[Rfam]
RNA sequence: AGUCGGUGAUGAUUCAAAGUGUAAGAGUAGUGGACAGAAGCGAUUUCUGAGAAACUUUACGCUGAGGCU
Numbered sequence: 001a002g003u004c005g006g007u008g009a010u011g012a013u014u015c016a017a018a019g020u021g022u023a024a025g026a027g028u029a030g031u032g033g034a035c036a037g038a039a040g041c042g043a044u045u046u047c048u049g050a051g052a053a054a055c056u057u058u059a060c061g062c063u064g065a066g067g068c069u
Stems, first nucleotide, its partner, number of pairs: 001069004
Dot-bracket structure: ((((.............................................................))))